[Rfam]
RNA sequence: AUUCGUCUUCAGGGGCAGGGUGUAAUUCCCGACCGGUGGUAUAGUCCACGAACUAGAUAGCAUUUCUAGUUGAACUGGUUUAAUUCCAGUACCGACAGUAAAGUCUGGAUAAAGAAGAUGGGG
Number, nucleotide and partner (000 for none) at each position: 001a000002u000003u121004c120005g119006u118007c117008u116009u115010c114011a000012g000013g000014g000015g000016c000017a000018g030019g029020g028021u000022g000023u000024a000025a000026u000027u000028c020029c019030c018031g000032a104033c103034c094035g093036g049037u048038g047039g046040u000041a000042u000043a000044g092045u091046c039047c038048a037049c036050g000051a000052a070053c069054u068055a000056g000057a000058u000059a000060g000061c000062a000063u000064u000065u000066c000067u000068a054069g053070u052071u000072g000073a000074a090075c089076u088077g087078g086079u000080u000081u000082a000083a000084u000085u000086c078087c077088a076089g075090u074091a045092c044093c035094g034095a000096c107097a106098g105099u000100a000101a000102a000103g033104u032105c098106u097107g096108g000109a000110u000111a000112a000113a000114g010115a009116a008117g007118a006119u005120g004121g003122g000123g000
Shown here is a 123-nucleotide RNA from Carnobacterium iners, a member of the family "FMN riboswitch aptamer (RFN element)". The RFN element is a highly conserved domain that is found frequently in the 5'-untranslated regions of prokaryotic mRNAs that encode for flavin mononucleotide (FMN) biosynthesis and transport proteins. The family's consensus secondary structure is taken from published work.